[Rfam]
RNA sequence: ACAACAUUAGGACCGUCGGUCUACCAAGCAAUAUCAUCCGUUCGGUGGAAGAUCUUUCUUCCGCCGU
Number, nucleotide and partner (000 for none) at each position: 001a000002c000003a000004a000005c063006a000007u000008u000009a000010g058011g057012a056013c000014c000015g053016u052017c051018g000019g000020u049021c048022u047023a046024c045025c044026a000027a042028g041029c040030a000031a000032u000033a000034u000035c000036a000037u000038c000039c000040g029041u028042u027043c000044g025045g024046u023047g022048g021049a020050a000051g017052a016053u015054c000055u000056u012057u011058c010059u000060u000061c000062c000063g005064c000065c000066g000067u000